[Rfam]
RNA sequence: GGCUUAUCGAGAAAGACCGAGGGAAGGGCCCUAUGACGUCUUAGCAACCUGUCGACAAGGUGCUAACUCCCGUUCCGGAUUAGCCGGAAAGAGAUGAGCG
Numbered sequence: 001g002g003c004u005u006a007u008c009g010a011g012a013a014a015g016a017c018c019g020a021g022g023g024a025a026g027g028g029c030c031c032u033a034u035g036a037c038g039u040c041u042u043a044g045c046a047a048c049c050u051g052u053c054g055a056c057a058a059g060g061u062g063c064u065a066a067c068u069c070c071c072g073u074u075c076c077g078g079a080u081u082a083g084c085c086g087g088a089a090a091g092a093g094a095u096g097a098g099c100g
Stems, first nucleotide, its partner, number of pairs: 002099007013042005021031003026071003043064004048060002050057002068092001073089006
A member of the RNA family "SAM riboswitch aptamer (S box leader)" from Algoriphagus sanaruensis, 100 nucleotides long. A search with the family's covariance model found it, with a score of 83 bits. Rfam describes the family as follows. The SAM riboswitch is found upstream of a number of genes which code for proteins involved in methionine or cysteine biosynthesis in Gram-positive bacteria. The source organism's lineage runs through Bacteria, Pseudomonadati, Bacteroidota, Cyclobacteriaceae and Algoriphagus.